[Rfam]
RNA: TPP riboswitch aptamer (THI element)
RNA sequence: AAGCGUUUGCGGGGGAACCACUGUGGUUGAGAAGGUUAAAACCUGACCCUUUGAACCUGUUAGUUAAUACUGGCGUAGGGAAGCAAAUCGACAUCUGUU
Numbered sequence: 001a002a003g004c005g006u007u008u009g010c011g012g013g014g015g016a017a018c019c020a021c022u023g024u025g026g027u028u029g030a031g032a033a034g035g036u037u038a039a040a041a042c043c044u045g046a047c048c049c050u051u052u053g054a055a056c057c058u059g060u061u062a063g064u065u066a067a068u069a070c071u072g073g074c075g076u077a078g079g080g081a082a083g084c085a086a087a088u089c090g091a092c093a094u095c096u097g098u099u
Stems, first nucleotide, its partner, number of pairs: 006087005011050004016044001017027004034043003056079004060073004